Rfam assigns this 195-nucleotide sequence from Loigolactobacillus backii to the family "Group II catalytic intron D1-D4-5".

RNA sequence: GAGAACUAAUAUUUCAAGUAGUGGAAUGAUGGGGUAACGCCCUGAAACGCUCCCCCUAAUACUCCGACUGGUGUAAGCAUGGAUUUAGCCAUCUUGGAUCAGAAGCUCGGUGAAGUCGGCUGAGAGUUGCCGUAAUCGAAAGAACGAAAACCGUUCAGAGGUGAAUGGUGCAACCUAUAGUCCGGAGUCUUAAAA
Number, nucleotide and partner (000 for none) at each position: 001g000002a000003g000004a000005a000006c000007u000008a000009a000010u000011a000012u000013u000014u000015c000016a000017a000018g053019u000020a051021g050022u049023g048024g000025a000026a000027u000028g000029a000030u000031g043032g042033g041034g040035u000036a000037a000038c000039g000040c034041c033042c032043u031044g000045a000046a000047a000048c023049g022050c021051u020052c000053c018054c000055c187056c000057u185058a000059a000060u000061a000062c000063u000064c110065c109066g108067a107068c102069u101070g100071g099072u098073g000074u096075a095076a094077g093078c000079a000080u091081g090082g089083a000084u000085u000086u000087a000088g000089c082090c081091a080092u000093c077094u076095u075096g074097g000098a072099u071100c070101a069102g068103a000104a000105g000106c000107u067108c066109g065110g064111u000112g000113a000114a000115g000116u000117c184118g183119g182120c000121u180122g000123a000124g000125a000126g174127u173128u172129g171130c170131c146132g145133u144134a000135a000136u000137c000138g000139a000140a000141a000142g000143a000144a133145c132146g131147a000148a000149a000150a169151c168152c167153g166154u165155u164156c163157a162158g000159a000160g000161g000162u157163g156164a155165a154166u153167g152168g151169u150170g130171c129172a128173a127174c126175c000176u000177a000178u000179a000180g121181u000182c119183c118184g117185g057186a000187g055188u000189c000190u000191u000192a000193a000194a000195a000
From the family's description: Group II introns are found in rRNA, tRNA and mRNA of organelles in fungi, plants and protists, and also in mRNA in bacteria. The source organism's lineage runs through Bacteria, Bacillati, Bacilli, Lactobacillales and Loigolactobacillus. The family has 139 seed sequences and 720 matches in Rfam 15.1.